[Rfam]
RNA: Lysine riboswitch aptamer
RNA sequence: GCUUAACGUAGAGGUGCGUUGUUUAUAAGUCGUGCGCAAGAGGGUGAUACCGAUGAGAGCGCAUAAAAGGAAACAACGCCGAAGCCAAUCAGGUCAUCACACCGAUUGAGCUGGGGCUGUUACCGAAUAGGGGCAGCACUGCCAUAGUACUUGGAAAUACACUAUGGAGCGCUACUGUAUGU
Number, nucleotide and partner (000 for none) at each position: 001g000002c000003u000004u000005a000006a000007c000008g175009u174010a173011g172012a000013g000014g000015u000016g079017c078018g077019u076020u075021g074022u073023u072024u071025a000026u000027a000028a000029g000030u000031c000032g064033u063034g062035c061036g060037c059038a000039a000040g000041a000042g000043g000044g000045u000046g000047a000048u000049a000050c000051c000052g000053a000054u000055g000056a000057g000058a000059g037060c036061g035062c034063a033064u032065a000066a000067a000068a000069g000070g000071a024072a023073a022074c021075a020076a019077c018078g017079c016080c000081g000082a000083a112084g111085c110086c108087a107088a106089u105090c104091a000092g102093g000094u000095c000096a000097u000098c000099a000100c000101a000102c092103c000104g090105a089106u088107u087108g086109a000110g085111c084112u083113g140114g139115g000116g137117c136118u135119g134120u133121u132122a000123c130124c000125g000126a000127a000128u000129a000130g123131g000132g121133g120134c119135a118136g117137c116138a000139c114140u113141g000142c167143c166144a165145u164146a163147g162148u161149a000150c000151u000152u000153g000154g000155a000156a000157a000158u000159a000160c000161a148162c147163u146164a145165u144166g143167g142168a000169g000170c000171g000172c011173u010174a009175c008176u000177g000178u000179a000180u000181g000182u000